[Rfam]
RNA sequence: UCGCCUCGGUGAACAUUCAACGCUGUCGGUGAGUUUGAGCUAAACUGACAAAACCAUCGACCGUUGACUGUACCCCAUGGCCAA
Numbered sequence: 001u002c003g004c005c006u007c008g009g010u011g012a013a014c015a016u017u018c019a020a021c022g023c024u025g026u027c028g029g030u031g032a033g034u035u036u037g038a039g040c041u042a043a044a045c046u047g048a049c050a051a052a053a054c055c056a057u058c059g060a061c062c063g064u065u066g067a068c069u070g071u072a073c074c075c076c077a078u079g080g081c082c083a084a
Stems, first nucleotide, its partner, number of pairs: 001084001003082001004080002008076001014070002017067006025061007033054004
Dot-bracket structure: (.(((..(.....((.((((((..(((((((.((((..............))))))))))))))))).)).....)..)).).)